[Rfam]
RNA sequence: GGCAUACGAUGAUACAGGAGAUUGCUACUAUUUGGGUAGGGAACUUCUGUGGAGAAUGUCCGAUUCGAGAAACCGGGCGACAA
Numbered sequence: 001g002g003c004a005u006a007c008g009a010u011g012a013u014a015c016a017g018g019a020g021a022u023u024g025c026u027a028c029u030a031u032u033u034g035g036g037u038a039g040g041g042a043a044c045u046u047c048u049g050u051g052g053a054g055a056a057u058g059u060c061c062g063a064u065u066c067g068a069g070a071a072a073c074c075g076g077g078c079g080a081c082a083a
Stems, first nucleotide, its partner, number of pairs: 014050003018047003025039005057082004064077003

About this RNA: Rfam assigns this 83-nucleotide RNA from Acetivibrio thermocellus to the family "S10-Clostridia ribosomal protein leader". It is annotated as a cis-regulatory leader. The match comes from Rfam's covariance-model search (45 bits). On this family, see Eckert and Weinberg, BMC Microbiol 2020: "Discovery of 20 novel ribosomal leader candidates in bacteria and archaea".